The record is a 47-nucleotide RNA from Vibrio sp. 16, which matches "malK-II RNA" in Rfam. The base pairs follow the family's consensus structure, which is taken from published work.

RNA sequence: AAUCCUACUGUAUGCUCGCACGAUAAUUCAUAUAAUGAUGAGCAGUA
Numbered sequence: 001a002a003u004c005c006u007a008c009u010g011u012a013u014g015c016u017c018g019c020a021c022g023a024u025a026a027u028u029c030a031u032a033u034a035a036u037g038a039u040g041a042g043c044a045g046u047a
Stems, first nucleotide, its partner, number of pairs: 011047002013044004